[Rfam]
RNA sequence: AGUUCUUUCGAUAUGACACAACAUCCUGCUGAGGUGUUGUGCGACCUGCAGUGUCAGUCGAAAGAACA
Numbered sequence: 001a002g003u004u005c006u007u008u009c010g011a012u013a014u015g016a017c018a019c020a021a022c023a024u025c026c027u028g029c030u031g032a033g034g035u036g037u038u039g040u041g042c043g044a045c046c047u048g049c050a051g052u053g054u055c056a057g058u059c060g061a062a063a064g065a066a067c068a
Stems, first nucleotide, its partner, number of pairs: 002067006009060004020038006043055003
The record is a 68-nucleotide RNA from Rutstroemia sp. NJR-2017a WRK4, which matches "bZIP non canonical Hac1/Xbp1 intron" in Rfam. Rfam 15.1 lists 1,325 matches to the family in 1,320 species. The family's RNA type in Rfam is small RNA. NCBI's taxonomy places the organism under Eukaryota, Opisthokonta, Fungi, sordariomyceta, Rutstroemia.